This 102-nucleotide sequence belongs to the Rfam family "Purine riboswitch aptamer".

RNA sequence: AUUAAAAUUAUAAAUUUCACUCGUAUAAUCGUGAGGAUAUGGCUCACAAGUUUCUACCGGUUAACCGUAAAAAUACCGACUAUGAGUGGUAACACAGCUGAA
Numbered sequence: 001a002u003u004a005a006a007a008u009u010a011u012a013a014a015u016u017u018c019a020c021u022c023g024u025a026u027a028a029u030c031g032u033g034a035g036g037a038u039a040u041g042g043c044u045c046a047c048a049a050g051u052u053u054c055u056a057c058c059g060g061u062u063a064a065c066c067g068u069a070a071a072a073a074u075a076c077c078g079a080c081u082a083u084g085a086g087u088g089g090u091a092a093c094a095c096a097g098c099u100g101a102a
Stems, first nucleotide, its partner, number of pairs: 018088008029049001031047005058078004